[Rfam]
The family of this 116-nucleotide RNA sequence from Durio zibethinus is "MIR408 microRNA precursor family". For this family Rfam cites "High throughput approaches reveal splicing of primary microRNA transcripts and tissue specific expression of mature microRNAs in Vitis vinifera" (Mica et al., BMC Genomics, 2009). The family's consensus secondary structure was predicted with WAR. NCBI's taxonomy places the organism under Eukaryota, Viridiplantae, rosids, malvids, Durio. Gene Ontology terms of the family: miRNA-mediated post-transcriptional gene silencing and RISC complex.
RNA sequence: AGGGAGAGACAGACGAAAACAGGGAACAGGCUGCGCAAGGAUGGAUCCACCAACAGACAUCUGUUGUUGCUCCGCCCAUGCACUGCCUCUUCACUGGCUCUGCCUCAUCGCUCGUU
Numbered sequence: 001a002g003g004g005a006g007a008g009a010c011a012g013a014c015g016a017a018a019a020c021a022g023g024g025a026a027c028a029g030g031c032u033g034c035g036c037a038a039g040g041a042u043g044g045a046u047c048c049a050c051c052a053a054c055a056g057a058c059a060u061c062u063g064u065u066g067u068u069g070c071u072c073c074g075c076c077c078a079u080g081c082a083c084u085g086c087c088u089c090u091u092c093a094c095u096g097g098c099u100c101u102g103c104c105u106c107a108u109c110g111c112u113c114g115u116u
Stems, first nucleotide, its partner, number of pairs: 017099001020096003024092003028088004033083001035081003039077002044072002